The family of this 83-nucleotide RNA sequence from Phaseolus vulgaris is "Small nucleolar RNA Z102/R77". Rfam classes the family as a C/D-box small nucleolar RNA. On this family, see Chen et al., Nucleic Acids Res 2003: "The high diversity of snoRNAs in plants: identification and comparative study of 120 snoRNA genes from Oryza sativa". Rfam 15.1 lists 1,346 matches to the family in 224 species.

RNA sequence: GAAUGACGUGAUGAUCAUUUAUUUCCCUAUUGGUUUGAUUGCCUAGAUGAUGGCACAAAUGUAUUAGCUCUAUCUGAUCGUUC
Numbered sequence: 001g002a003a004u005g006a007c008g009u010g011a012u013g014a015u016c017a018u019u020u021a022u023u024u025c026c027c028u029a030u031u032g033g034u035u036u037g038a039u040u041g042c043c044u045a046g047a048u049g050a051u052g053g054c055a056c057a058a059a060u061g062u063a064u065u066a067g068c069u070c071u072a073u074c075u076g077a078u079c080g081u082u083c
Stems, first nucleotide, its partner, number of pairs: 002082004037056001040055004